[Rfam]
RNA: Small nucleolar RNA U2-30
RNA sequence: GAGCCAUGAUGAGAAGAUUUUACUACUGAGGUUUAUAACUAUUAAGGUUUCUGUACUUGAUCUGAGCUCA
Number, nucleotide and partner (000 for none) at each position: 001g069002a068003g067004c066005c000006a000007u000008g000009a000010u000011g000012a000013g034014a033015a032016g000017a000018u029019u028020u000021u000022a000023c000024u000025a000026c000027u000028g019029a018030g000031g000032u015033u014034u013035a000036u000037a000038a000039c000040u000041a000042u000043u000044a000045a000046g000047g000048u000049u000050u000051c000052u000053g000054u000055a000056c000057u000058u000059g000060a000061u000062c000063u000064g000065a000066g004067c003068u002069c001070a000